Record summary:
This 83-nucleotide RNA sequence from Mus musculus belongs to the Rfam family "mir-770 microRNA precursor family". The literature on the family includes a 2006 paper in Genome Res by Berezikov et al., "Many novel mammalian microRNA candidates identified by extensive cloning and RAKE analysis". The base pairs follow the family's consensus structure, which was predicted with RNAalifold.
RNA sequence: CCUUCUGUGCCCCCAGCACCACGUGUCUGGGCCACGUGAGCAACGCCACGUGGGCCUGACGUGGAGCUGGGGCCGCAGGGGUC
Numbered sequence: 001c002c003u004u005c006u007g008u009g010c011c012c013c014c015a016g017c018a019c020c021a022c023g024u025g026u027c028u029g030g031g032c033c034a035c036g037u038g039a040g041c042a043a044c045g046c047c048a049c050g051u052g053g054g055c056c057u058g059a060c061g062u063g064g065a066g067c068u069g070g071g072g073c074c075g076c077a078g079g080g081g082u083c
Stems, first nucleotide, its partner, number of pairs: 004080003007076003011072007019064004025060003029057005035052004040046002